[Rfam]
RNA sequence: AAGUGAAAUGAUGGUUUACCAUCUUUCGGGGCUGACUUAGAAUGGAGAGAAUUUUGUAAUGCUGAUCACUU
Dot-bracket structure: ((((((...........................................................))))))
Numbered sequence: 001a002a003g004u005g006a007a008a009u010g011a012u013g014g015u016u017u018a019c020c021a022u023c024u025u026u027c028g029g030g031g032c033u034g035a036c037u038u039a040g041a042a043u044g045g046a047g048a049g050a051a052u053u054u055u056g057u058a059a060u061g062c063u064g065a066u067c068a069c070u071u
Stems, first nucleotide, its partner, number of pairs: 001071006
Notes
Small nucleolar RNA SNORD2: a 71-nucleotide sequence from Hymenochirus boettgeri. The match comes from Rfam's covariance-model search (75 bits). The source organism's lineage runs through Eukaryota, Chordata, Craniata, Sarcopterygii and Hymenochirus. Its family is annotated with nucleolus and RNA processing in the Gene Ontology. On this family, see Zhou et al., Gene 2004: "Identification of a novel box C/D snoRNA from mouse nucleolar cDNA library".